[Rfam]
RNA: Small nucleolar RNA SNORA25
Organism: Propithecus coquereli
RNA sequence: AGGUCAUUUCAAAGAGGGCUUACAGGGCUGUGAAACCAAGAGCUCUUAAUGUUAUGACCAAAGAUUGAAGUUCUCUACAGAAUGCCAUAACACUCAAUAGUGUUGUUUACCUGAGGAGAUAUAAGA
Number, nucleotide and partner (000 for none) at each position: 001a000002g059003g058004u057005c056006a055007u054008u000009u000010c000011a000012a000013a000014g047015a046016g045017g044018g043019c042020u041021u040022a000023c000024a000025g000026g037027g036028c000029u000030g000031u000032g000033a000034a000035a000036c027037c026038a000039a000040g021041a020042g019043c018044u017045c016046u015047u014048a000049a000050u000051g000052u000053u000054a007055u006056g005057a004058c003059c002060a000061a000062a000063g000064a000065u000066u000067g000068a000069a000070g000071u000072u119073c118074u117075c116076u115077a000078c000079a112080g111081a000082a000083u000084g000085c000086c000087a106088u105089a104090a103091c102092a101093c100094u099095c000096a000097a000098u000099a094100g093101u092102g091103u090104u089105g088106u087107u000108u000109a000110c000111c080112u079113g000114a000115g076116g075117a074118g073119a072120u000121a000122u000123a000124a000125g000126a000